[Rfam]
RNA sequence: AUAUUAUUUCGGUAGGUGAGGUUACCACAGGGAUUGGGUUGAUUCCUUAAGAUUGCUGCCGCGAGAUUGUGGAGACACAACGAGUUGGUUAGCAGGCUAUGUCGUGAAGGCAUAACCUAAUGCAAUUAUUACGCCCUGUGAUACUAAAGCUUGAACGGUAUAAGUAAGAU
Number, nucleotide and partner (000 for none) at each position: 001a000002u000003a000004u000005u166006a165007u164008u163009u162010c000011g156012g000013u108014a000015g151016g150017u149018g000019a000020g145021g144022u143023u000024a000025c000026c140027a139028c138029a137030g136031g135032g134033a000034u000035u000036g000037g000038g000039u000040u000041g000042a000043u000044u000045c000046c000047u000048u000049a000050a000051g000052a126053u125054u124055g123056c122057u000058g000059c087060c000061g085062c084063g000064a000065g000066a000067u000068u079069g078070u077071g076072g000073a000074g000075a000076c071077a070078c069079a068080a000081c000082g000083a000084g062085u061086u000087g059088g000089u000090u000091a000092g000093c000094a000095g117096g116097c000098u114099a000100u000101g111102u110103c109104g000105u000106g000107a000108a013109g103110g102111c101112a000113u000114a098115a000116c096117c095118u000119a000120a000121u000122g056123c055124a054125a053126u052127u000128a000129u000130u000131a000132c000133g000134c032135c031136c030137u029138g028139u027140g026141a000142u000143a022144c021145u020146a000147a000148a000149g017150c016151u015152u000153g000154a000155a000156c011157g000158g000159u000160a000161u000162a009163a008164g007165u006166a005167a000168g000169a000170u000
This 170-nucleotide sequence from Mediterraneibacter hominis belongs to the Rfam family "M-box riboswitch aptamer (ykoK leader)". The family has 159 seed sequences and 1,095 matches in Rfam 15.1. Taxonomically the source falls in Mediterraneibacter (Bacteria, Bacillota, Clostridia, Lachnospiraceae). The literature on the family includes a 2010 paper in RNA Biol by Ramesh and Winkler, "Magnesium-sensing riboswitches in bacteria". It scores 98 bits against the family's covariance model. From the family's description: M-box riboswitch, also know as ykoK leader is described as a metaloregulatory RNA that sense divalent metals and function as a genetic control element of genes related to divalent metal transport in bacteria. It was first reported upstream of the B.subtilis ykoK gene and genes with related functions in other bacteria.